Yersinia sRNA 276: a 195-nucleotide RNA from Paramixta manurensis. Rfam classes the family as an antisense RNA. The organism belongs to Paramixta, within Bacteria.
[Rfam]
RNA sequence: CACCGACAUCAGCGAUUCAUUCUGCGAGCCGUUGCCCACCGCCAGGUAAGCAUUCAUGCCCAGCUCUUUCAUCUGCUGCUCGCCGAUUACGCGGGUAGUGAUAUUUUUACUGUAGGCAUCCGCCAGUUGGCGCGCCUGCGAAGCCAGGUAGGCGGCAUUGCAAAUAUUGGGCGGCAUAUUGCUCAAAUCUUUCGC
Dot-bracket structure: ....((.....(((.(((.(...).))).))).((.....)).......((......))..(((..........)))((.(((((((...((((((..((.((....)).)).....))))))..))))))).)).((.((.(((........))).)).))....((((((........)))))).))......
Numbered sequence: 001c002a003c004c005g006a007c008a009u010c011a012g013c014g015a016u017u018c019a020u021u022c023u024g025c026g027a028g029c030c031g032u033u034g035c036c037c038a039c040c041g042c043c044a045g046g047u048a049a050g051c052a053u054u055c056a057u058g059c060c061c062a063g064c065u066c067u068u069u070c071a072u073c074u075g076c077u078g079c080u081c082g083c084c085g086a087u088u089a090c091g092c093g094g095g096u097a098g099u100g101a102u103a104u105u106u107u108u109a110c111u112g113u114a115g116g117c118a119u120c121c122g123c124c125a126g127u128u129g130g131c132g133c134g135c136c137u138g139c140g141a142a143g144c145c146a147g148g149u150a151g152g153c154g155g156c157a158u159u160g161c162a163a164a165u166a167u168u169g170g171g172c173g174g175c176a177u178a179u180u181g182c183u184c185a186a187a188u189c190u191u192u193c194g195c
Stems, first nucleotide, its partner, number of pairs: 005189002012032003016028003020024001034042002050059002062077003078135002081132007091123006099112002102109002137162002140159002143156003167186006